[Rfam]
The record is a 79-nucleotide RNA from Dendrobium catenatum, which matches "Small nucleolar RNA Z162" in Rfam. A search with the family's covariance model found it, with a score of 47 bits. The family's RNA type in Rfam is C/D-box small nucleolar RNA. Its family is annotated with RNA processing and nucleolus in the Gene Ontology. The source organism's lineage runs through Eukaryota, Spermatophyta, Petrosaviidae, Dendrobieae and Dendrobium.
RNA sequence: CAUGGCACAAUGAGGAAUAUAUAUUAUUAACAAUCUGUUUGAUUGACAUAUUAUUAGUCCUUUUCAUUCUGAGUGCCCA
Numbered sequence: 001c002a003u004g005g006c007a008c009a010a011u012g013a014g015g016a017a018u019a020u021a022u023a024u025u026a027u028u029a030a031c032a033a034u035c036u037g038u039u040u041g042a043u044u045g046a047c048a049u050a051u052u053a054u055u056a057g058u059c060c061u062u063u064u065c066a067u068u069c070u071g072a073g074u075g076c077c078c079a
Stems, first nucleotide, its partner, number of pairs: 004077005010067007